[Rfam]
RNA sequence: UAUCUGCGAUGACGAAUUAUGAAAUCUUGGCAUGCCAGACUUUAGAGAUCGUUACUGAUCUAUGAGAAGAAAAUUCAUUUUACUGAGUCAGACU
Numbered sequence: 001u002a003u004c005u006g007c008g009a010u011g012a013c014g015a016a017u018u019a020u021g022a023a024a025u026c027u028u029g030g031c032a033u034g035c036c037a038g039a040c041u042u043u044a045g046a047g048a049u050c051g052u053u054a055c056u057g058a059u060c061u062a063u064g065a066g067a068a069g070a071a072a073a074u075u076c077a078u079u080u081u082a083c084u085g086a087g088u089c090a091g092a093c094u
Base pairs, nucleotide, nucleotide: 003092004091005090006089007087047060048059049058050057